[Rfam]
RNA: Small nucleolar RNA SNORA13
RNA sequence: UGCCUUUGUGUUGCCCGUUCAUUGUCUCCAUAGUGAAUGAGGUGUCUACCAAGGCAAACAGUAACCUUGUUGGUUGUCUGUGUUUAAAAGUAGUCUUCACCGAUUCCUUUAAACUGCAACUACAAGAACACGA
Numbered sequence: 001u002g003c004c005u006u007u008g009u010g011u012u013g014c015c016c017g018u019u020c021a022u023u024g025u026c027u028c029c030a031u032a033g034u035g036a037a038u039g040a041g042g043u044g045u046c047u048a049c050c051a052a053g054g055c056a057a058a059c060a061g062u063a064a065c066c067u068u069g070u071u072g073g074u075u076g077u078c079u080g081u082g083u084u085u086a087a088a089a090g091u092a093g094u095c096u097u098c099a100c101c102g103a104u105u106c107c108u109u110u111a112a113a114c115u116g117c118a119a120c121u122a123c124a125a126g127a128a129c130a131c132g133a
Stems, first nucleotide, its partner, number of pairs: 002055005010046001012044004016039008066126004073120005082115001084113002087110001088108001